[Rfam]
RNA sequence: AGCUUUGCGCAGUGGCGGUACCAUAGCCGAUGAGGUUUAUCCGAGGCGUGGUUAUUGCUAGUUGAAAACUAACCCCAAUACCCCGCGCUGACGACCCUUGUGGUCGGCAUGCGCAAUUUUUAACGGUUCCCCAGGGAG
Numbered sequence: 001a002g003c004u005u006u007g008c009g010c011a012g013u014g015g016c017g018g019u020a021c022c023a024u025a026g027c028c029g030a031u032g033a034g035g036u037u038u039a040u041c042c043g044a045g046g047c048g049u050g051g052u053u054a055u056u057g058c059u060a061g062u063u064g065a066a067a068a069c070u071a072a073c074c075c076c077a078a079u080a081c082c083c084c085g086c087g088c089u090g091a092c093g094a095c096c097c098u099u100g101u102g103g104u105c106g107g108c109a110u111g112c113g114c115a116a117u118u119u120u121u122a123a124c125g126g127u128u129c130c131c132c133a134g135g136g137a138g
Base pairs, nucleotide, nucleotide: 020052021051022050023049024048026047027046028045034042035041085114086113087112089109090108092106093105094104095103096102127138128137129136130135
RNA: U4 spliceosomal RNA
Organism: Pomacea canaliculata